The record is an 88-nucleotide sequence from Paenibacillus apis, which matches "BsrC" in Rfam. Lineage of the source: Bacteria > Bacillati > Bacillota > Caryophanales > Paenibacillus. Rfam describes the family as follows. The 301 nucleotide sequence from Kouji Nakamura has been trimmed to a highly conserved ~85 nucleotide long core to form this family. It is annotated as a small RNA. On this family, see Saito et al., Gene 2008: "Novel small RNA-encoding genes in the intergenic regions of Bacillus subtilis".

[Rfam]
RNA sequence: GGUUUCUAAUACAACAAAAGCCCUACCUCUCAAUUGUCCUUGCGGCUCCGAUGACCGCGCCAGCUUGAAUCAGAAAUACUCGAAUACU
Numbered sequence: 001g002g003u004u005u006c007u008a009a010u011a012c013a014a015c016a017a018a019a020g021c022c023c024u025a026c027c028u029c030u031c032a033a034u035u036g037u038c039c040u041u042g043c044g045g046c047u048c049c050g051a052u053g054a055c056c057g058c059g060c061c062a063g064c065u066u067g068a069a070u071c072a073g074a075a076a077u078a079c080u081c082g083a084a085u086a087c088u
Stems, first nucleotide, its partner, number of pairs: 034068003039063002041059005047053001